[Rfam]
RNA sequence: AACCACACUAUCAAUGAAUGGAUUCACCCGUGAGAUGACGUGUUUGUUUCACCAGGACGAGGAUGUGGCAUCAUAUUACUAGCCAUCGCACGAAAUUAAUAGGAUGGCACGUCCUCAUCUUAGAUGGAACAACCACGUCAUCUCACGGGUGGAUCCAUUCAUUGAUAGUGUGGUU
Numbered sequence: 001a002a003c004c005a006c007a008c009u010a011u012c013a014a015u016g017a018a019u020g021g022a023u024u025c026a027c028c029c030g031u032g033a034g035a036u037g038a039c040g041u042g043u044u045u046g047u048u049u050c051a052c053c054a055g056g057a058c059g060a061g062g063a064u065g066u067g068g069c070a071u072c073a074u075a076u077u078a079c080u081a082g083c084c085a086u087c088g089c090a091c092g093a094a095a096u097u098a099a100u101a102g103g104a105u106g107g108c109a110c111g112u113c114c115u116c117a118u119c120u121u122a123g124a125u126g127g128a129a130c131a132a133c134c135a136c137g138u139c140a141u142c143u144c145a146c147g148g149g150u151g152g153a154u155c156c157a158u159u160c161a162u163u164g165a166u167a168g169u170g171u172g173g174u175u
Stems, first nucleotide, its partner, number of pairs: 001175007009167007017159003021155008030146004035141005041135002044132005051125001054121001056119002062113003069106004074101005085096002